[Rfam]
RNA sequence: GUAAGAAAUCUGUUUCUAGUUCUCCGCAAUACGCGCAAAACUGAAAAGAUUUUUUACAG
Numbered sequence: 001g002u003a004a005g006a007a008a009u010c011u012g013u014u015u016c017u018a019g020u021u022c023u024c025c026g027c028a029a030u031a032c033g034c035g036c037a038a039a040a041c042u043g044a045a046a047a048g049a050u051u052u053u054u055u056a057c058a059g
Base pairs, nucleotide, nucleotide: 001057002056003055004054005053006052007051008050009049010048011047013045017043018042019041020040021039023037025035026034

A member of the RNA family "mir-255 microRNA precursor family" from Nippostrongylus brasiliensis, 59 nucleotides long. The family has 5 seed sequences and 31 matches in Rfam 15.1. On this family, see Ruby et al., Cell 2006: "Large-scale sequencing reveals 21U-RNAs and additional microRNAs and endogenous siRNAs in C. elegans". The family's consensus secondary structure was predicted with RNAalifold.